[Rfam]
RNA sequence: GUCCAAGGUGAUUCCCUCUCCAAAGGGCUGACUGUGUGCCCUUUUCAGGGACGUAGCAACUUGGAAGAAAGCCAGGCAUGCCCAAGGUCUCUGGUGAACAGGGAAUACUUGUUUCCUUUGCCUUCCUUUGGCUGCCCACAUAU
Number, nucleotide and partner (000 for none) at each position: 001g000002u065003c064004c063005a062006a061007g060008g000009u058010g057011a000012u000013u000014c000015c000016c000017u000018c000019u050020c049021c048022a044023a043024a042025g041026g040027g039028c038029u000030g000031a000032c000033u000034g000035u000036g000037u000038g028039c027040c026041c025042u024043u023044u022045u000046c000047a000048g021049g020050g019051a000052c000053g000054u000055a000056g000057c010058a009059a000060c007061u006062u005063g004064g003065a002066a000067g000068a000069a000070a000071g000072c000073c000074a000075g000076g133077c000078a000079u131080g000081c000082c000083c000084a000085a000086g124087g000088u000089c000090u000091c000092u000093g116094g000095u000096g113097a112098a000099c000100a000101g000102g000103g000104a000105a000106u000107a000108c000109u000110u000111g000112u097113u096114u000115c000116c093117u000118u000119u000120g000121c000122c000123u000124u086125c000126c000127u000128u000129u000130g000131g079132c000133u076134g000135c000136c000137c000138a000139c000140a000141u000142a000143u000
RNA: Small nucleolar RNA SNORA67